[Rfam]
Shown here is a 99-nucleotide sequence from Clostridium gasigenes, a member of the family "TPP riboswitch aptamer (THI element)". Rfam describes the family as follows. Vitamin B(1) in its active form thiamin pyrophosphate (TPP) is an essential coenzyme that is synthesised by coupling of pyrimidine and thiazole moieties in bacteria. It scores 77 bits against the family's covariance model. Its family is annotated with thiamine pyrophosphate binding in the Gene Ontology. NCBI's taxonomy places the organism under Bacteria, Bacillati, Bacillota, Eubacteriales, Clostridium.
RNA sequence: ACUAAUAGCUAGGGGUGCAUUUUAUGCUGAGAGAUACUAGUAUCGACCCUCGUACCUGAUCUGGAUAAUGCCAGCGUAGGAAAGCUUUUUAAAUAUAUC
Numbered sequence: 001a002c003u004a005a006u007a008g009c010u011a012g013g014g015g016u017g018c019a020u021u022u023u024a025u026g027c028u029g030a031g032a033g034a035u036a037c038u039a040g041u042a043u044c045g046a047c048c049c050u051c052g053u054a055c056c057u058g059a060u061c062u063g064g065a066u067a068a069u070g071c072c073a074g075c076g077u078a079g080g081a082a083a084g085c086u087u088u089u090u091a092a093a094u095a096u097a098u099c
Stems, first nucleotide, its partner, number of pairs: 007086004011050004017027004034043003055080004061074004